Shown here is a 75-nucleotide RNA sequence from Owenia fusiformis, a member of the family "mir-219 microRNA precursor family". The organism belongs to Owenia, within Eukaryota. It scores 72 bits against the family's covariance model. Gene Ontology terms of the family: RISC complex and miRNA-mediated post-transcriptional gene silencing.
RNA sequence: UCAGGCUGUGAUUGUCCAAACGCAAUUCUUGUUGAUUUAAUGACCCAAGAACUGUGUAUGGACAUCAGUGUUUGA
Numbered sequence: 001u002c003a004g005g006c007u008g009u010g011a012u013u014g015u016c017c018a019a020a021c022g023c024a025a026u027u028c029u030u031g032u033u034g035a036u037u038u039a040a041u042g043a044c045c046c047a048a049g050a051a052c053u054g055u056g057u058a059u060g061g062a063c064a065u066c067a068g069u070g071u072u073u074g075a
Stems, first nucleotide, its partner, number of pairs: 002074005009067004014063005021056004026051006